[Rfam]
RNA sequence: GUCAGUCCCGUUCGUGCCGUGGUCAUCCACAGGUAAGAGGCACCAUAGGUGCCCGCCACGGCCGUUCUCCCAAGAGGGAGAACAAGCGGGACAGGAGGA
Dot-bracket structure: ....((((((((...((((((((.............(.(((((.....))))))))))))))..(.((((......)))).)..)))))))).......
This 99-nucleotide sequence belongs to the Rfam family "DUF1874 RNA".
The family's RNA type in Rfam is cis-regulatory element.
The base pairs follow the family's consensus structure, which is taken from published work.